[Rfam]
RNA sequence: AAGAAGGAAAUUAGAGAGAAUGAGAAAUCAUCGCCGAAGGGGCAACGCUAUAUUAAACUCUCAGGCAAAAGGAUAAUUUCCGGACA
Numbered sequence: 001a002a003g004a005a006g007g008a009a010a011u012u013a014g015a016g017a018g019a020a021u022g023a024g025a026a027a028u029c030a031u032c033g034c035c036g037a038a039g040g041g042g043c044a045a046c047g048c049u050a051u052a053u054u055a056a057a058c059u060c061u062c063a064g065g066c067a068a069a070a071g072g073a074u075a076a077u078u079u080c081c082g083g084a085c086a
Stems, first nucleotide, its partner, number of pairs: 006081008020031004033066003036062002040060003
The record is an 86-nucleotide RNA from Macrococcoides caseolyticum, which matches "Glycine riboswitch aptamer" in Rfam. The organism belongs to Macrococcoides caseolyticum, within Bacteria.